The family of this 115-nucleotide RNA from Xanthomonas sp. XNM01 is "Xanthomonadaceae sRNA sX13". It is annotated as a small RNA. The source organism's lineage runs through Bacteria, Pseudomonadota, Gammaproteobacteria, Lysobacterales and Xanthomonas. The literature on the family includes a 2011 paper in Nucleic Acids Res by Schmidtke et al., "Genome-wide transcriptome analysis of the plant pathogen Xanthomonas identifies sRNAs with putative virulence functions". A search with the family's covariance model found it, with a score of 103 bits. The base pairs follow the family's consensus structure, which was predicted with CMfinder.
RNA sequence: AACGCCUGUCGCAGAUCUCUCCCUUCCCCUGGAGCAGAUCGACUGGAGCGGGGUUACUCCCCAAACUUCCGCUCCCUGGCCCCGCCGACCUCCCCCUGGUCGGCGGGGUUUUUUA
Numbered sequence: 001a002a003c004g005c006c007u008g009u010c011g012c013a014g015a016u017c018u019c020u021c022c023c024u025u026c027c028c029c030u031g032g033a034g035c036a037g038a039u040c041g042a043c044u045g046g047a048g049c050g051g052g053g054u055u056a057c058u059c060c061c062c063a064a065a066c067u068u069c070c071g072c073u074c075c076c077u078g079g080c081c082c083c084g085c086c087g088a089c090c091u092c093c094c095c096c097u098g099g100u101c102g103g104c105g106g107g108g109u110u111u112u113u114u115a
Base pairs, nucleotide, nucleotide: 004012006011014040015039016038017037018036019034020033021032022031045075046074047073048072049071050070051069052068053066054065055064078110079109080108081107082106083105084104085103087101088100089099090098